S15-Flavobacteria ribosomal protein leader: a 66-nucleotide RNA from Polaribacter irgensii. NCBI's taxonomy places the organism under Bacteria, Pseudomonadati, Flavobacteriales, Flavobacteriaceae, Polaribacter irgensii. On this family, see Eckert and Weinberg, BMC Microbiol 2020: "Discovery of 20 novel ribosomal leader candidates in bacteria and archaea". Rfam classes the family as a cis-regulatory leader. The sequence is in the family's curated seed alignment. Clan: Ribosomal Protein S15 Leader clan. Pairs were carried over by alignment from the consensus structure, which is taken from published work.
RNA sequence: UAUCUUUGCAGCUUCAAUGAAAAAUUUAUUGAAAUACAUAAAAAUCAUUUAAAUAAUAUUGGCAUG
Dot-bracket structure: .............((((((.......))))))..................................